[Rfam]
RNA sequence: GGUGCGCAAUAGACUUACCUCCACGUGGUGCACAAUAGGCAACGUAUACUCAUACGGCAAAAAGGUCUAU
Numbered sequence: 001g002g003u004g005c006g007c008a009a010u011a012g013a014c015u016u017a018c019c020u021c022c023a024c025g026u027g028g029u030g031c032a033c034a035a036u037a038g039g040c041a042a043c044g045u046a047u048a049c050u051c052a053u054a055c056g057g058c059a060a061a062a063a064g065g066u067c068u069a070u
Base pairs, nucleotide, nucleotide: 002033003032004031005030017029018028019027043056044055045054046053047052
This 70-nucleotide RNA sequence from Rodentolepis nana belongs to the Rfam family "HDV ribozyme from F. prausnitzii". A reference for the family is Webb et al. (2009), "Widespread occurrence of self-cleaving ribozymes", Science. The organism belongs to Rodentolepis, within Eukaryota.